[Rfam]
RNA sequence: AGUGAGGAUAGAGGUGCAAAGACCAUUAGUACACAACUGGAGGAUAAUGAGGUCCAACGAUGGUUGUAGAAAGGGGAAUUUGCCGAAGUUUCAUUGAUUCUCAUGAUCAUGAAGCUGGUUCUGCUAUUGAAUAAAUACAGAACUGUCAUAUAGGAGACUAUAUGGAGGGCUAUCUUACGC
Dot-bracket structure: .....((((((....(((((..((........(((((((.....................))))))).......))..)))))...((((((((.((((.....))))))))))))(((((((.((((.....))))))))))).(((((((......)))))))....)))))).....